[Rfam]
RNA: SAM (S-adenosyl methionine) riboswitch aptamer
Organism: Salinispora tropica
RNA sequence: GGUCACGAGCGCCAGCGACAAGCCCCGGCUUGCUGGCCGGCAACCCUCGUCGAGGUUCGCGGUGGGGUGCCCCGGGUGAUGACCGGGCCUGGCGCGGCGCGCGUCGGGCAAGCGCGGACC
Numbered sequence: 001g002g003u004c005a006c007g008a009g010c011g012c013c014a015g016c017g018a019c020a021a022g023c024c025c026c027g028g029c030u031u032g033c034u035g036g037c038c039g040g041c042a043a044c045c046c047u048c049g050u051c052g053a054g055g056u057u058c059g060c061g062g063u064g065g066g067g068u069g070c071c072c073c074g075g076g077u078g079a080u081g082a083c084c085g086g087g088c089c090u091g092g093c094g095c096g097g098c099g100c101g102c103g104u105c106g107g108g109c110a111a112g113c114g115c116g117g118a119c120c
Stems, first nucleotide, its partner, number of pairs: 001084004009038001011037006021030002039071003044067003048062001087109010